Shown here is a 110-nucleotide RNA sequence from Fukomys damarensis, a member of the family "Small nucleolar RNA SNORD22". On this family, see Tycowski et al., Nature 1996: "A mammalian gene with introns instead of exons generating stable RNA products". Rfam classes the family as a C/D-box small nucleolar RNA. The family's consensus secondary structure was predicted with PFOLD.
[Rfam]
RNA sequence: UCCCAGAGGAGACACAUCCUCCCGUCUGAGCCCCAGAGCCUGGGAAGGCGAACCGCUGGGGCUGGCGGGGCAGAGGGGACGUCUGCUCCAGGAGGAGCUGUGCGAGGGGU
Numbered sequence: 001u002c003c004c005a006g007a008g009g010a011g012a013c014a015c016a017u018c019c020u021c022c023c024g025u026c027u028g029a030g031c032c033c034c035a036g037a038g039c040c041u042g043g044g045a046a047g048g049c050g051a052a053c054c055g056c057u058g059g060g061g062c063u064g065g066c067g068g069g070g071c072a073g074a075g076g077g078g079a080c081g082u083c084u085g086c087u088c089c090a091g092g093a094g095g096a097g098c099u100g101u102g103c104g105a106g107g108g109g110u
Stems, first nucleotide, its partner, number of pairs: 001109004